Mammalian CPEB3 ribozyme: a 77-nucleotide RNA from Alligator mississippiensis. The family's consensus secondary structure is taken from published work. The organism belongs to Alligator, within Eukaryota.

[Rfam]
RNA sequence: UGUAACUCUUUAUUGGCCAUAACAGAAGCGCUCACAUCACAGCCCUGUCAGAUUCCAAUGAGUCUGUGAACUCUGCU
Numbered sequence: 001u002g003u004a005a006c007u008c009u010u011u012a013u014u015g016g017c018c019a020u021a022a023c024a025g026a027a028g029c030g031c032u033c034a035c036a037u038c039a040c041a042g043c044c045c046u047g048u049c050a051g052a053u054u055c056c057a058a059u060g061a062g063u064c065u066g067u068g069a070a071c072u073c074u075g076c077u
Stems, first nucleotide, its partner, number of pairs: 015044003021077001023075004028040001030038001049066007